The family of this 300-nucleotide RNA from Lutibacter profundi is "Bacterial RNase P class A".
Rfam's curators write: Ribonuclease P (RNase P) is a ubiquitous endoribonuclease, found in archaea, bacteria and eukarya as well as chloroplasts and mitochondria.
RNA sequence: UAAGUAGGUCGUCUUAUCGCUCCAUUCUAAUGGAGAGGAAAGUCCGGACACCAAAGAGUAGUGUAGCGGAUAACAUCCGUCCAACGUGAGUUGAGGACAAGUGCAACAGAAAGCAAGUACAGUUCGGCUGUAGUGAAACCAGGUAAACUCUAUGCGGUGAAAUGCUACGUAUAUUGAAAUUUUAGGGUUACUCGCUCUAUUUCAAGGGGUAGGCAGCUUGAGCUAUAAAGUAAUUUAUAGCCUAGAUAAAUGAUAAGAACUUUUUAAGUACAAAAUCCGGCUUAUAGACCUACUUAAUUU
Numbered sequence: 001u002a003a004g005u006a007g008g009u010c011g012u013c014u015u016a017u018c019g020c021u022c023c024a025u026u027c028u029a030a031u032g033g034a035g036a037g038g039a040a041a042g043u044c045c046g047g048a049c050a051c052c053a054a055a056g057a058g059u060a061g062u063g064u065a066g067c068g069g070a071u072a073a074c075a076u077c078c079g080u081c082c083a084a085c086g087u088g089a090g091u092u093g094a095g096g097a098c099a100a101g102u103g104c105a106a107c108a109g110a111a112a113g114c115a116a117g118u119a120c121a122g123u124u125c126g127g128c129u130g131u132a133g134u135g136a137a138a139c140c141a142g143g144u145a146a147a148c149u150c151u152a153u154g155c156g157g158u159g160a161a162a163u164g165c166u167a168c169g170u171a172u173a174u175u176g177a178a179a180u181u182u183u184a185g186g187g188u189u190a191c192u193c194g195c196u197c198u199a200u201u202u203c204a205a206g207g208g209g210u211a212g213g214c215a216g217c218u219u220g221a222g223c224u225a226u227a228a229a230g231u232a233a234u235u236u237a238u239a240g241c242c243u244a245g246a247u248a249a250a251u252g253a254u255a256a257g258a259a260c261u262u263u264u265u266a267a268g269u270a271c272a273a274a275a276u277c278c279g280g281c282u283u284a285u286a287g288a289c290c291u292a293c294u295u296a297a298u299u300u
Base pairs, nucleotide, nucleotide: 001296002295003294004293005292006291007290008289009288010287011285012258013257014256015255016254017253018252020035021034022033023032024031025030040283041282042281044280045279046278047277048276049159050158051157052156056193057192058191059190061155062154063153064152065151066080067079068078069077070076081095082093083092084091085090096150097149101148102147103144104143118132119131120130121129122128123127163215164214165213166212174205175204176203177202178201184198185197186196187195188194222241223240224239225238226237227236228235229234
Pairs were carried over by alignment from the consensus structure, which is taken from published work. It scores 215 bits against the family's covariance model.